Shown here is a 109-nucleotide sequence from Oceanobacillus iheyensis, a member of the family "SAM riboswitch aptamer (S box leader)". The base pairs follow the family's consensus structure, which is taken from published work. Lineage of the source: Bacteria > Bacillota > Caryophanales > Oceanobacillus > Oceanobacillus iheyensis. For this family Rfam cites "The S box regulon: a new global transcription termination control system for methionine and cysteine biosynthesis genes in gram-positive bacteria" (Grundy and Henkin, Mol Microbiol, 1998).
RNA sequence: UCCUUAUCAAGAGUCGGGGGAGGAAUCUGGUCCAUUGAUCCCGCAGCAACCAGUUACAAUGAAGUAACAUGGUGCUCAUUCCAGCAAGCGUAGGCUUGAUAGAUGAGAA
Numbered sequence: 001u002c003c004u005u006a007u008c009a010a011g012a013g014u015c016g017g018g019g020g021a022g023g024a025a026u027c028u029g030g031u032c033c034a035u036u037g038a039u040c041c042c043g044c045a046g047c048a049a050c051c052a053g054u055u056a057c058a059a060u061g062a063a064g065u066a067a068c069a070u071g072g073u074g075c076u077c078a079u080u081c082c083a084g085c086a087a088g089c090g091u092a093g094g095c096u097u098g099a100u101a102g103a104u105g106a107g108a109a
Base pairs, nucleotide, nucleotide: 001109003107004106005105006104007103008102013044015043016042017041018040022033023032024031027084028083029082030081045076046075047074048073050072051071053068054067055066056065080101085098086097087096088095089094